[Rfam]
Nucleotides: 084
Base pairs, nucleotide, nucleotide: 003082004081005080006079
Number, partner (000 for none) and nucleotide at each position: 001000g002000c003082c004081u005080c006079u007000g008000a009000u010000g011000a012000u013000g014000a015000a016000u017000a018000a019000a020000c021000a022000u023000u024000u025000a026000c027000u028000u029000u030000c031000g032000u033000u034000c035000u036000u037000c038000c039000g040000a041000g042000a043000u044000g045000u046000u047000a048000u049000a050000u051000g052000c053000g054000g055000a056000a057000a058000a059000a060000a061000u062000u063000u064000g065000g066000a067000g068000a069000c070000c071000u072000g073000a074000a075000c076000u077000g078000a079006a080005g081004a082003g083000g084000c
The record is an 84-nucleotide RNA sequence from Castanea mollissima, which matches "Small nucleolar RNA Z159/U59" in Rfam.
It is annotated as a C/D-box small nucleolar RNA.
The match comes from Rfam's covariance-model search (74 bits).
Taxonomically the source falls in Castanea (Eukaryota, Streptophyta, Embryophyta, Fagaceae).
Rfam 15.1 lists 1,401 matches to the family in 272 species.
The family's consensus secondary structure was predicted with PFOLD.
Its Rfam clan is "SNORD59 clan".
The literature on the family includes a 2003 paper in Nucleic Acids Res by Chen et al., "The high diversity of snoRNAs in plants: identification and comparative study of 120 snoRNA genes from Oryza sativa".